[Rfam]
RNA sequence: CAAAAAAAAUCCCCGCGGGCUAGUAGCUGCGGGGUCCUUCGAGUCCUGCUUUAAGGAUAGAAGGCAAAGGGAGAGGAGAAACCGGUGAAGACUUAUGGGGAAACGUAAGCCUUCUCCGCGG
Numbered sequence: 001c002a003a004a005a006a007a008a009a010u011c012c013c014c015g016c017g018g019g020c021u022a023g024u025a026g027c028u029g030c031g032g033g034g035u036c037c038u039u040c041g042a043g044u045c046c047u048g049c050u051u052u053a054a055g056g057a058u059a060g061a062a063g064g065c066a067a068a069g070g071g072a073g074a075g076g077a078g079a080a081a082c083c084g085g086u087g088a089a090g091a092c093u094u095a096u097g098g099g100g101a102a103a104c105g106u107a108a109g110c111c112u113u114c115u116c117c118g119c120g121g
Stems, first nucleotide, its partner, number of pairs: 011034008035071005044057004083118003087114004092109004
Rfam assigns this 121-nucleotide RNA from Peribacillus psychrosaccharolyticus to the family "ylbH leader". The literature on the family includes a 2004 paper in Proc Natl Acad Sci U S A by Barrick et al., "New RNA motifs suggest an expanded scope for riboswitches in bacterial genetic control". A search with the family's covariance model found it, with a score of 80 bits. The family's RNA type in Rfam is cis-regulatory leader.